[Rfam]
RNA: mir-451 microRNA precursor family
RNA sequence: CAGAGAGUGGCGGUAAAACCGUUACCAUUACUGAGUUUAGCAAUGGUAAGGGUUCUUUUGCCUCUUUCAAA
Numbered sequence: 001c002a003g004a005g006a007g008u009g010g011c012g013g014u015a016a017a018a019c020c021g022u023u024a025c026c027a028u029u030a031c032u033g034a035g036u037u038u039a040g041c042a043a044u045g046g047u048a049a050g051g052g053u054u055c056u057u058u059u060g061c062c063u064c065u066u067u068c069a070a071a
Stems, first nucleotide, its partner, number of pairs: 007064001009062001011060003017054004022049008031040003